[Rfam]
Background:
This 70-nucleotide sequence from Strigops habroptila belongs to the Rfam family "Small nucleolar RNA SNORD26". For this family Rfam cites "A mammalian gene with introns instead of exons generating stable RNA products" (Tycowski et al., Nature, 1996). Rfam 15.1 lists 451 matches to the family in 401 species. A search with the family's covariance model found it, with a score of 47 bits.
RNA sequence: CUGCGGGGAUGAUCCCGCGAACUCUCUCUUCCUGACCGCACUGGAGAAACUCUGUCAGGCUCUGAGUGGC
Numbered sequence: 001c002u003g004c005g006g007g008g009a010u011g012a013u014c015c016c017g018c019g020a021a022c023u024c025u026c027u028c029u030u031c032c033u034g035a036c037c038g039c040a041c042u043g044g045a046g047a048a049a050c051u052c053u054g055u056c057a058g059g060c061u062c063u064g065a066g067u068g069g070c
Stems, first nucleotide, its partner, number of pairs: 001069004